[Rfam]
RNA sequence: GGUUUUUACCCAGUUUAACCAAGGUUAGCUGUCGAUUCGAACUCUCGAAAGAGUGAGUCGAAUAACUAAAAUUUUUGGAAACGCUUCUUCGGGGUUAUCCGAAGAGGCAGA
Numbered sequence: 001g002g003u004u005u006u007u008a009c010c011c012a013g014u015u016u017a018a019c020c021a022a023g024g025u026u027a028g029c030u031g032u033c034g035a036u037u038c039g040a041a042c043u044c045u046c047g048a049a050a051g052a053g054u055g056a057g058u059c060g061a062a063u064a065a066c067u068a069a070a071a072u073u074u075u076u077g078g079a080a081a082c083g084c085u086u087c088u089u090c091g092g093g094g095u096u097a098u099c100c101g102a103a104g105a106g107g108c109a110g111a
Stems, first nucleotide, its partner, number of pairs: 008036001013029002017026003038060003042055001044053003085109001087107004093100002
Dot-bracket structure: .......(....((..(((....))).))......).(((.(.(((....))).)..)))........................(.((((..((....))...)))).)..